The record is a 78-nucleotide RNA sequence from Muraenolepis orangiensis, which matches "mir-103/107 microRNA precursor family" in Rfam. Its family is annotated with RISC complex and miRNA-mediated post-transcriptional gene silencing in the Gene Ontology. Pairs were carried over by alignment from the consensus structure, which was predicted with RNAalifold. This family consists of the mammalian microRNA (miRNA) precursors mir-103 and mir107. Animal miRNAs are transcribed as ~70nt precursors and subsequently processed by the Dicer enzyme to give a ~22nt product. In this case the mature sequence comes from the 3' arm of the precursor. The extents of the hairpin precursors are not generally known and are estimated based on hairpin prediction. The products are thought to have regulatory roles through complementarity to mRNA. The involvement of Dicer in miRNA processing suggests a relationship with the phenomenon of RNA interference. miRNAs are numbered based on the sequence of the mature RNA.
RNA sequence: CCAGGCCUUCAGCCUCUUUACAGUGCUGCCUUGUCGACUCAUGUUCAAGCAGCAUUGUACAGGGCUAUGACGGCAUGG
Numbered sequence: 001c002c003a004g005g006c007c008u009u010c011a012g013c014c015u016c017u018u019u020a021c022a023g024u025g026c027u028g029c030c031u032u033g034u035c036g037a038c039u040c041a042u043g044u045u046c047a048a049g050c051a052g053c054a055u056u057g058u059a060c061a062g063g064g065c066u067a068u069g070a071c072g073g074c075a076u077g078g
Stems, first nucleotide, its partner, number of pairs: 014064004019059010030049004